A member of the RNA family "mir-190 microRNA precursor family" from Sarcoptes scabiei, 88 nucleotides long.
The organism belongs to Sarcoptes, within Eukaryota.
It scores 56 bits against the family's covariance model.
The family has 76 seed sequences and 1,667 matches in Rfam 15.1.
RNA sequence: AUUUUUUGGUGAUAUGUUUGAUAUUCUUGGUUGAGUGAUUAAAUCAAAUAUAUGAUCAACCAAGAAUCAGACAUAUAUUCCAAACAAU
Numbered sequence: 001a002u003u004u005u006u007u008g009g010u011g012a013u014a015u016g017u018u019u020g021a022u023a024u025u026c027u028u029g030g031u032u033g034a035g036u037g038a039u040u041a042a043a044u045c046a047a048a049u050a051u052a053u054g055a056u057c058a059a060c061c062a063a064g065a066a067u068c069a070g071a072c073a074u075a076u077a078u079u080c081c082a083a084a085c086a087a088u
Stems, first nucleotide, its partner, number of pairs: 005084005012076011024064002029061005